[Rfam]
RNA: Alphacoronavirus 3'UTR
Organism: Alphacoronavirus pusilli
RNA sequence: UCCUCUUGGUGACUCUGUUGCUUGAGUCAAUCUGUUGCGCUAUUCACCCCAUAUCUGUACUUUUCAGAAUGGACAAGGUGACCUACUUAUACUAAAAUGUAAGCCUGUAUUUAAGCAGUAUAAGCAAUACUUAAAUAUAUUACUGCCCUUAGAUCAAAGCUAUAUGCAUUAGUACCUCUAUGUUCUGGAGUAAUCAAAGAUCCGCUUAGACGAGCCUAUAUGGAAGAGCUAGAACAUAUGUGCUACAUGCUAUAGUUAGUAGUUGUAGAUGGGUGUGGUUUUGAUAGGGAUACA
Numbered sequence: 001u002c003c004u005c006u007u008g009g010u011g012a013c014u015c016u017g018u019u020g021c022u023u024g025a026g027u028c029a030a031u032c033u034g035u036u037g038c039g040c041u042a043u044u045c046a047c048c049c050c051a052u053a054u055c056u057g058u059a060c061u062u063u064u065c066a067g068a069a070u071g072g073a074c075a076a077g078g079u080g081a082c083c084u085a086c087u088u089a090u091a092c093u094a095a096a097a098u099g100u101a102a103g104c105c106u107g108u109a110u111u112u113a114a115g116c117a118g119u120a121u122a123a124g125c126a127a128u129a130c131u132u133a134a135a136u137a138u139a140u141u142a143c144u145g146c147c148c149u150u151a152g153a154u155c156a157a158a159g160c161u162a163u164a165u166g167c168a169u170u171a172g173u174a175c176c177u178c179u180a181u182g183u184u185c186u187g188g189a190g191u192a193a194u195c196a197a198a199g200a201u202c203c204g205c206u207u208a209g210a211c212g213a214g215c216c217u218a219u220a221u222g223g224a225a226g227a228g229c230u231a232g233a234a235c236a237u238a239u240g241u242g243c244u245a246c247a248u249g250c251u252a253u254a255g256u257u258a259g260u261a262g263u264u265g266u267a268g269a270u271g272g273g274u275g276u277g278g279u280u281u282u283g284a285u286a287g288g289g290a291u292a293c294a
Base pairs, nucleotide, nucleotide: 086103087102088101089100090099107138108137109136110135111134112133113132114131115130117128142279143278144277145276146275152264153263154262159256160255161254162253163252170245171244172243173242174241179238180237181236182235184233185232186231187230188229205214206213215223216222